[Rfam]
RNA sequence: GCUGUUUAAGGGUAGGAGAGGGGUGUUACUUUACGAGCUGCCACCUUUUCCAUCCUCCCCUCUGCAGGAGC
Numbered sequence: 001g002c003u004g005u006u007u008a009a010g011g012g013u014a015g016g017a018g019a020g021g022g023g024u025g026u027u028a029c030u031u032u033a034c035g036a037g038c039u040g041c042c043a044c045c046u047u048u049u050c051c052a053u054c055c056u057c058c059c060c061u062c063u064g065c066a067g068g069a070g071c
Stems, first nucleotide, its partner, number of pairs: 001071003005067002009063002011060002014056004018051001019048007027040002030037002
Dot-bracket structure: (((.((..((((.((((((((((((.((.((....)).)).)))))))..).))))..)).))..)).)))
Shown here is a 71-nucleotide sequence from Donacobius atricapilla, a member of the family "mir-1759 microRNA precursor family".
A search with the family's covariance model found it, with a score of 58 bits.